[Rfam]
RNA sequence: CUUUUAUUAAGAAUGGUGGAGGGACUGGCCCUAUGAAGCCUAGCAACAACUAAUAUUCAUUUAUUAGAACUGUGCUAAAUCCUGCAGGAGUUUCCUGAGAAAUGAGAG
Number, nucleotide and partner (000 for none) at each position: 001c108002u107003u106004u105005u104006a103007u102008u101009a000010a000011g000012a000013a041014u000015g040016g039017u038018g000019g000020a000021g031022g030023g029024a000025c084026u000027g082028g081029c023030c022031c021032u000033a000034u000035g000036a000037a000038g017039c016040c015041u013042a076043g075044c074045a073046a000047c072048a071049a000050c067051u066052a065053a064054u063055a000056u000057u000058c000059a000060u000061u000062u000063a054064u053065u052066a051067g050068a000069a000070c000071u048072g047073u045074g044075c043076u042077a000078a000079a000080u100081c028082c027083u000084g025085c097086a096087g095088g094089a093090g000091u000092u000093u089094c088095c087096u086097g085098a000099g000100a080101a008102a007103u006104g005105a004106g003107a002108g001
The family of this 108-nucleotide RNA from Clostridium paraputrificum is "SAM riboswitch aptamer (S box leader)". From the family's description: The SAM riboswitch is found upstream of a number of genes which code for proteins involved in methionine or cysteine biosynthesis in Gram-positive bacteria. The SAM riboswitch acts at the level of transcription termination control. The predicted structure consists of a complex stem-loop region followed by a single stem loop terminator region. An alternative and mutually exclusive form involves bases in the 3' segment of helix 1 with those in the 5' region of helix 5 to form a structure termed the anti-terminator form.